The family of this 158-nucleotide RNA sequence from Bos grunniens is "ODC internal ribosome entry site (IRES)". Rfam 15.1 lists 437 matches to the family in 128 species. It scores 92 bits against the family's covariance model. Gene Ontology term of the family: ribosome binding. On this family, see Pyronnet et al., Cell Mol Life Sci 2005: "Alternative splicing facilitates internal ribosome entry on the ornithine decarboxylase mRNA". Lineage of the source: Eukaryota > Eutheria > Ruminantia > Bovidae > Bos.
RNA sequence: GUUUCCACUGCUGCAUGGAGGGCACACGUAUCUUCAGUGGGACUUGGAAUUCCUGGAGAAUUGCCUUUGUGACAGGUUGACAUAAUCCCUUUAAAUUCCAUCUCUAAGUUUUCCAUAUUUGCCUAUAUCUUGAGAGUCCCUUGGACUGCAAAGAGAUC
Dot-bracket structure: .........(((...(.(((((((.(............((((........))))......))))))))..)...))).......(((.(((.....(((...........................................))).....))).))).